The family of this 75-nucleotide sequence from Aurantiacibacter xanthus is "Makes More Granules Regulator RNA (mmgR)".
For this family Rfam cites "Evidence for a second class of S-adenosylmethionine riboswitches and other regulatory RNA motifs in alpha-proteobacteria" (Corbino et al., Genome Biol, 2005).
It is annotated as a small RNA.
RNA sequence: GGAACGGGCCUUUCAGGCAUCCUCUCCCAAGACUUUCAAAGCCCGGCCUCGCGCCGGGCUUUUUUUCUGCCCAAU
Numbered sequence: 001g002g003a004a005c006g007g008g009c010c011u012u013u014c015a016g017g018c019a020u021c022c023u024c025u026c027c028c029a030a031g032a033c034u035u036u037c038a039a040a041g042c043c044c045g046g047c048c049u050c051g052c053g054c055c056g057g058g059c060u061u062u063u064u065u066u067c068u069g070c071c072c073a074a075u
Stems, first nucleotide, its partner, number of pairs: 008018004040060008